Eukaryotic large subunit ribosomal RNA: a 285-nucleotide part of an RNA from Melampsora laricis-populina.
[Rfam]
Nucleotides: 285
Stems, first nucleotide, its partner, number of pairs: 005141013020045003026039004049056002065089005073080002091124002093121003097116002103110001144283002147280001151273006160249011171237001173205004180197007209234004214230002217228002251261002
Number, partner (000 for none) and nucleotide at each position: 001000g002000a003000g004000u005141c006140u007139a008138a009137c010136a011135u012134g013133c014132u015131u016130g017129c018000g019000a020045g021044u022043a023000u024000u025000a026039g027038g028037g029036u030000g031000u032000u033000g034000a035000a036029a037028c038027c039026c040000g041000a042000a043022u044021g045020c046000g047000u048000a049056a050055u051000g052000a053000a054000a055050g056049u057000g058000a059000a060000u061000u062000u063000c064000a065089g066088a067087u068086g069085u070000g071000a072000u073080c074079c075000g076000c077000a078000a079074g080073g081000u082000g083000c084000a085069a086068c087067a088066u089065c090000g091124a092123c093121c094120a095119g096000u097116c098115u099000g100000g101000a102000u103110c104000a105000u106000u107000u108000a109000u110103g111000u112000g113000a114000a115098g116097g117000u118000a119095c120094u121093g122000a123092g124091u125000a126000a127000g128000a129017g130016c131015a132014a133013g134012u135011a136010u137009g138008u139007u140006a141005g142000g143000a144283c145282c146000c147280g148000a149000a150000a151273g152272a153271u154270g155269g156268u157000g158000a159000a160249c161248u162247a163246u164245g165244c166243c167242u168241g169240g170239a171237u172000a173205g174204g175203g176202u177000g178000a179000a180197g181196u182195c183194a184193g185192a186191g187000g188000a189000a190000a191186c192185u193184c194183u195182g196181a197180u198000g199000g200000a201000a202176g203175c204174u205173c206000g207000u208000a209234g210233c211232g212231g213000u214230u215229c216000u217228g218227a219000c220000g221000u222000g223000c224000a225000a226000a227218u228217c229215g230214a231212u232211c233210g234209u235000a236000g237171a238000a239170u240169c241168u242167g243166g244165g245164u246163a247162u248161a249160g250000g251261g252260g253000c254000g255000a256000a257000a258000g259000a260252c261251u262000a263000a264000u265000c266000g267000a268156a269155c270154c271153a272152u273151c274000u275000a276000g277000u278000a279000g280147c281000u282145g283144g284000u285000u